[Rfam]
RNA: Glycine riboswitch aptamer
RNA sequence: UCUCAGCACAUGGGAGAACCCGAAACGCGACCUUCGCGUCAGGGUGCCGAAGGAGCAACCGCCCCGGAAACUCUCAGGCCCACGGACCGUGUGCGAUUA
Numbered sequence: 001u002c003u004c005a006g007c008a009c010a011u012g013g014g015a016g017a018a019c020c021c022g023a024a025a026c027g028c029g030a031c032c033u034u035c036g037c038g039u040c041a042g043g044g045u046g047c048c049g050a051a052g053g054a055g056c057a058a059c060c061g062c063c064c065c066g067g068a069a070a071c072u073c074u075c076a077g078g079c080c081c082a083c084g085g086a087c088c089g090u091g092u093g094c095g096a097u098u099a
Base pairs, nucleotide, nucleotide: 006094007093008092009091010090011089012088013087019044020043021042046079047078048077049075050074053073054072055071059067060066